[Rfam]
RNA sequence: CCUGACUUUGAGUUUCUCCUCAGGGCACUACGGGCAAAGCUGGGGACCCAGGGAGAGACGUAAGUAAGG
Numbered sequence: 001c002c003u004g005a006c007u008u009u010g011a012g013u014u015u016c017u018c019c020u021c022a023g024g025g026c027a028c029u030a031c032g033g034g035c036a037a038a039g040c041u042g043g044g045g046a047c048c049c050a051g052g053g054a055g056a057g058a059c060g061u062a063a064g065u066a067a068g069g
Stems, first nucleotide, its partner, number of pairs: 002068002005065004012059009023049003028044002031042003
Dot-bracket structure: .((.((((...(((((((((..(((..((.(((......)))))..))).)))))))))..)))).)).
RNA: mir-711 microRNA precursor family
Organism: Trichechus manatus